[Rfam]
Rfam assigns this 58-nucleotide RNA sequence from Larimichthys crocea to the family "U7 small nuclear RNA". About the family: Animal histone pre-mRNAs are spliced by a different mechanism than nuclear pre-mRNAs and self-splicing introns. The organism belongs to Larimichthys, within Eukaryota.
RNA sequence: AGGAACCAAUAGCUCUUUAGAUAUUUCUCUAGUAGGUUUCUCAUUUUGAGAAGCCCUC
Dot-bracket structure: ..................................((((((((.....))))))))...